[Rfam]
Plastid-psbA-1 3UTR RNA: a 107-nucleotide RNA sequence from Acer saccharum.
Its Rfam clan is "Plastid-psbA 3UTR RNA clan".
About the family: Plastid psbA-1 is a non-coding RNA (ncRNA) present in plastids.
It is annotated as a cis-regulatory element.
RNA sequence: UCGAAGCUCCUUCUACAAAUGGAUAAGAUUUCGAUCUUCGUGUAUACUAGUUUUUGAAAAUAACGGAGCAAUGCCGAUCCUCUUCCAAUAAAUCGGUAUUGCCUAUU
Numbered sequence: 001u002c003g004a005a006g007c008u009c010c011u012u013c014u015a016c017a018a019a020u021g022g023a024u025a026a027g028a029u030u031u032c033g034a035u036c037u038u039c040g041u042g043u044a045u046a047c048u049a050g051u052u053u054u055u056g057a058a059a060a061u062a063a064c065g066g067a068g069c070a071a072u073g074c075c076g077a078u079c080c081u082c083u084u085c086c087a088a089u090a091a092a093u094c095g096g097u098a099u100u101g102c103c104u105a106u107u
Stems, first nucleotide, its partner, number of pairs: 008023003012019001062107002065104002068102007076094003081090001083088001